[Rfam]
RNA sequence: UGCAGCCUUGUCAAAUUCAGUGGGAUUCUUUUUCAUGGACCUCACUGGCCAAAAUGGCUGCUACAGUAACUGUAGUUCAUGGGCCCCAUGUCUUUGUUGUGAGAGGUGGGGAUAAAUAUAUACUACAGACAAAC
Number, nucleotide and partner (000 for none) at each position: 001u000002g061003c060004a059005g058006c000007c000008u000009u000010g000011u000012c000013a000014a000015a000016u000017u000018c047019a046020g045021u044022g043023g042024g041025a000026u039027u038028c037029u000030u000031u000032u000033u000034c000035a000036u000037g028038g027039a026040c000041c024042u023043c022044a021045c020046u019047g018048g000049c000050c000051a000052a000053a000054a000055u000056g000057g000058c005059u004060g003061c002062u000063a000064c000065a000066g000067u000068a000069a000070c000071u000072g126073u125074a124075g123076u122077u120078c000079a000080u000081g000082g000083g000084c111085c110086c109087c108088a107089u000090g000091u000092c000093u000094u000095u000096g000097u000098u000099g000100u000101g000102a000103g000104a000105g000106g000107u088108g087109g086110g085111g084112a000113u000114a000115a000116a000117u000118a000119u000120a077121u000122a076123c075124u074125a073126c072127a000128g000129a000130c000131a000132a000133a000134c000
Shown here is a 134-nucleotide sequence from Kryptolebias marmoratus, a member of the family "Small nucleolar RNA SNORA5". A search with the family's covariance model found it, with a score of 89 bits. ACA5 is a member of the H/ACA class of snoRNA that guide the sites of modification of uridines to pseudouridines. Rfam classes the family as an H/ACA-box small nucleolar RNA. Pairs were carried over by alignment from the consensus structure, which was predicted with RNAfold. Its family is annotated with nucleolus and RNA processing in the Gene Ontology.